[Rfam]
RNA sequence: AUAAAAGCAGGGAUCUAUUGCCAUUUGUGAAUUGGUCUCUCGUAAACGUCAGGGAUAAAAGUUGUGCAAUGUUAUUGGGUGAACCGCCUUCUAUUUUCUUAUGAUUGAUGGUUCAGUAAACAAUGCUACAUGC
Number, nucleotide and partner (000 for none) at each position: 001a000002u000003a000004a000005a049006a000007g047008c000009a000010g000011g038012g037013a000014u035015c034016u000017a032018u000019u000020g000021c000022c000023a000024u000025u000026u000027g000028u000029g000030a000031a000032u017033u000034g015035g014036u000037c012038u011039c000040u000041c000042g000043u000044a000045a000046a000047c007048g000049u005050c000051a000052g000053g000054g000055a000056u000057a000058a000059a000060a000061g000062u000063u000064g000065u000066g126067c125068a124069a000070u122071g121072u120073u119074a000075u000076u000077g000078g000079g000080u115081g114082a113083a112084c111085c110086g109087c000088c000089u000090u000091c000092u000093a000094u000095u000096u000097u000098c000099u000100u000101a000102u000103g000104a000105u000106u000107g000108a000109u086110g085111g084112u083113u082114c081115a080116g000117u000118a000119a073120a072121c071122a070123a000124u068125g067126c066127u000128a000129c000130a000131u000132g000133c000